RNA sequence: CUAGCUAUGGUGACAUGGUGCCCAAGACGAUUGCUGGAAAGAUAUUUGGCUCCAUUUGCUCGCUGAGUGGAGUGCUGGUCAUUGCUCUGCCUGUCCCAGUUAUUGUUUCCAAU
Numbered sequence: 001c002u003a004g005c006u007a008u009g010g011u012g013a014c015a016u017g018g019u020g021c022c023c024a025a026g027a028c029g030a031u032u033g034c035u036g037g038a039a040a041g042a043u044a045u046u047u048g049g050c051u052c053c054a055u056u057u058g059c060u061c062g063c064u065g066a067g068u069g070g071a072g073u074g075c076u077g078g079u080c081a082u083u084g085c086u087c088u089g090c091c092u093g094u095c096c097c098a099g100u101u102a103u104u105g106u107u108u109c110c111a112a113u
Stems, first nucleotide, its partner, number of pairs: 002112001004109001007106004012101003017096002020094002036076002039073001049061001
A member of the RNA family "Potassium channel RNA editing signal" from Gopherus evgoodei, 113 nucleotides long. From the family's description: This family represents a group of sequences related to the human potassium channel Kv1.1 hairpin element which directs the efficient modification of an adenosine to inosine by an adenosine deaminase acting on RNA (ADAR). By type it is a cis-regulatory element. It scores 82 bits against the family's covariance model.